Source information
A member of the RNA family "mraW RNA" from Mycobacterium haemophilum, 104 nucleotides long. The family's consensus secondary structure is taken from published work. The family's RNA type in Rfam is cis-regulatory element. The source organism's lineage runs through Bacteria, Bacillati, Actinomycetota, Mycobacteriaceae and Mycobacterium.

RNA sequence: GCGACCCGCUGCACCGUGGCCUCUGCCCGAACCGGCCCUGGCGUACUUCCCCAACGCCAGGUUCGUGCUUUCGGACAGAGACCUCGGUGCAAGGUGUCGCCGGG
Numbered sequence: 001g002c003g004a005c006c007c008g009c010u011g012c013a014c015c016g017u018g019g020c021c022u023c024u025g026c027c028c029g030a031a032c033c034g035g036c037c038c039u040g041g042c043g044u045a046c047u048u049c050c051c052c053a054a055c056g057c058c059a060g061g062u063u064c065g066u067g068c069u070u071u072c073g074g075a076c077a078g079a080g081a082c083c084u085c086g087g088u089g090c091a092a093g094g095u096g097u098c099g100c101c102g103g104g
Stems, first nucleotide, its partner, number of pairs: 010091007018083002021080005027074005032067001033065003037061008